[Rfam]
RNA sequence: UGCCGGUGCGGUGAAUAAGGCAGUAAGUUUGCAUGCGUGCAAACCGAUGAGCCGUCAUUGACCUAGUGUGACUCUGCCGAUAUGGAUUAGGCGCACCGGCC
Number, nucleotide and partner (000 for none) at each position: 001u000002g100003c099004c098005g097006g096007u095008g094009c093010g000011g000012u000013g000014a000015a000016u000017a000018a000019g078020g077021c076022a075023g000024u000025a000026a000027g044028u043029u042030u041031g040032c039033a038034u000035g000036c000037g000038u033039g032040c031041a030042a029043a028044c027045c000046g000047a000048u000049g074050a073051g072052c000053c070054g069055u000056c068057a067058u066059u065060g064061a000062c000063c000064u060065a059066g058067u057068g056069u054070g053071a000072c051073u050074c049075u022076g021077c020078c019079g000080a000081u000082a000083u000084g000085g000086a000087u000088u000089a000090g000091g000092c000093g009094c008095a007096c006097c005098g004099g003100c002101c000
RNA: Methylophilales-1 RNA